[Rfam]
Nucleotides: 074
Base pairs, nucleotide, nucleotide: 004070005069006068008066009065010064011063012062013061014060015059016058021052022051023050024049027048028047029046030045
Number, partner (000 for none) and nucleotide at each position: 001000u002000g003000a004070a005069a006068g007000g008066a009065a010064a011063g012062u013061u014060c015059u016058g017000u018000u019000a020000a021052c022051a023050c024049u025000u026000c027048g028047a029046c030045u031000c032000u033000g034000a035000g036000u037000a038000c039000u040000g041000u042000a043000g044000a045030a046029g047028u048027c049024a050023g051022u052021g053000c054000a055000c056000u057000a058016c059015a060014g061013a062012a063011c064010u065009u066008u067000g068006u069005u070004u071000u072000c073000a074000g

mir-148/mir-152 microRNA precursor family: a 74-nucleotide sequence from Polypterus senegalus. Taxonomically the source falls in Polypterus (Eukaryota, Metazoa, Vertebrata, Actinopterygii). Gene Ontology terms of the family: RISC complex and miRNA-mediated post-transcriptional gene silencing. Rfam 15.1 lists 1,272 matches to the family in 609 species. The literature on the family includes a 2002 paper in Curr Biol by Lagos-Quintana et al., "Identification of tissue-specific microRNAs from mouse".